RNA sequence: GGUGGCUCAUUCGCCUGGUUAUGAAAGCCCUGCGCAAGCGGUAAAGUGCUUCUUAACACUUCGAAUGACGCACAAAACGGUGCCUGCCGUCCUCCAGACCGAUAUUCGCUCACAGCGGGCCUUAUCAAGCAUCGGACGAAACGUUGAGUUAGGCACCACUUA
Numbered sequence: 001g002g003u004g005g006c007u008c009a010u011u012c013g014c015c016u017g018g019u020u021a022u023g024a025a026a027g028c029c030c031u032g033c034g035c036a037a038g039c040g041g042u043a044a045a046g047u048g049c050u051u052c053u054u055a056a057c058a059c060u061u062c063g064a065a066u067g068a069c070g071c072a073c074a075a076a077a078c079g080g081u082g083c084c085u086g087c088c089g090u091c092c093u094c095c096a097g098a099c100c101g102a103u104a105u106u107c108g109c110u111c112a113c114a115g116c117g118g119g120c121c122u123u124a125u126c127a128a129g130c131a132u133c134g135g136a137c138g139a140a141a142c143g144u145u146g147a148g149u150u151a152g153g154c155a156c157c158a159c160u161u162a
Stems, first nucleotide, its partner, number of pairs: 005071002007068006019056003023052002026050003079157007088138005101126004140150003
Dot-bracket structure: ....((((((((......(((.((.(((...................))))).)))......)))))).)).......(((((((..(((((........((((..................)))).......))))).(((.....)))))))))).....

This 162-nucleotide sequence from Erwinia tracheiphila belongs to the Rfam family "Glm Y RNA activator of glmS mRNA". A reference for the family is Reichenbach et al. (2008), "The small RNA GlmY acts upstream of the sRNA GlmZ in the activation of glmS expression and is subject to regulation by polyadenylation in Escherichia coli", Nucleic Acids Res. The match comes from Rfam's covariance-model search (120 bits). Pairs were carried over by alignment from the consensus structure, which is taken from published work. From the family's description: This family consists of a number of bacterial RNA genes of around 167 bases in length. The tke1 RNA gene is present in Escherichia coli, Shigella flexneri, Yersinia pestis and Salmonella species where it is found between the yfhK and purL genes. The function of this RNA is unknown. Its Rfam clan is "Glm clan". The source organism's lineage runs through Bacteria, Pseudomonadati, Gammaproteobacteria, Erwiniaceae and Erwinia.